[Rfam]
RNA: mir-5928 microRNA precursor family
Organism: Haemonchus placei
RNA sequence: AGCACAAACUUGAAGCAGUGUAGAUCAGUAGGAUCAGCUGACCAUACCCAACUAUUCUGCUUCAAGUUUGGGCCU
Numbered sequence: 001a002g003c004a005c006a007a008a009c010u011u012g013a014a015g016c017a018g019u020g021u022a023g024a025u026c027a028g029u030a031g032g033a034u035c036a037g038c039u040g041a042c043c044a045u046a047c048c049c050a051a052c053u054a055u056u057c058u059g060c061u062u063c064a065a066g067u068u069u070g071g072g073c074c075u
Base pairs, nucleotide, nucleotide: 002073003072005070006069007068008067009066011064012063013062014061015060016059017058018057020055021054022053023052025050028047029046030045032043034041035040